[Rfam]
RNA sequence: UGGGCGGGGGAAGCUCAUCAGCGGGGCCACGCGCUGAGUGCUCGUCACUCCAUCGGCCCCUGGGAAGGUCUGAGACUGGGGCCUCCCGCGGCCCUAACCGGGCCCUCCCCGAGUGGGGAGGUGAGUUCCCAGAGAGCAGGGCUCCACGCGUGGGCAGACUGGGCAGAAAAUACCCUGAGUGAGGUAAGCCAGACACAAAAGAACACACAUGGUUUGUACUCACUGAUAAGUCGAUAUUAGCCCGAAAGCUCAAAAUGCCCACUUUACAACUUACAGACUAUAUGAAGCUUAAGAAGAAGGAAGAUUGUGGAUGUUUCAAUCCUACUUA
Numbered sequence: 001u002g003g004g005c006g007g008g009g010g011a012a013g014c015u016c017a018u019c020a021g022c023g024g025g026g027c028c029a030c031g032c033g034c035u036g037a038g039u040g041c042u043c044g045u046c047a048c049u050c051c052a053u054c055g056g057c058c059c060c061u062g063g064g065a066a067g068g069u070c071u072g073a074g075a076c077u078g079g080g081g082c083c084u085c086c087c088g089c090g091g092c093c094c095u096a097a098c099c100g101g102g103c104c105c106u107c108c109c110c111g112a113g114u115g116g117g118g119a120g121g122u123g124a125g126u127u128c129c130c131a132g133a134g135a136g137c138a139g140g141g142c143u144c145c146a147c148g149c150g151u152g153g154g155c156a157g158a159c160u161g162g163g164c165a166g167a168a169a170a171u172a173c174c175c176u177g178a179g180u181g182a183g184g185u186a187a188g189c190c191a192g193a194c195a196c197a198a199a200a201g202a203a204c205a206c207a208c209a210u211g212g213u214u215u216g217u218a219c220u221c222a223c224u225g226a227u228a229a230g231u232c233g234a235u236a237u238u239a240g241c242c243c244g245a246a247a248g249c250u251c252a253a254a255a256u257g258c259c260c261a262c263u264u265u266a267c268a269a270c271u272u273a274c275a276g277a278c279u280a281u282a283u284g285a286a287g288c289u290u291a292a293g294a295a296g297a298a299g300g301a302a303g304a305u306u307g308u309g310g311a312u313g314u315u316u317c318a319a320u321c322c323u324a325c326u327u328a
Stems, first nucleotide, its partner, number of pairs: 001328004009322003015297002018294002023060004036050005080232003090104005105120006121223006141213003299317004304312002

Rfam assigns this 328-nucleotide sequence from Rattus norvegicus to the family "Nuclear RNase P". Gene Ontology terms of the family: tRNA processing, ribonuclease P activity and ribonuclease P complex. The family is grouped with related families in Rfam's "RNaseP clan".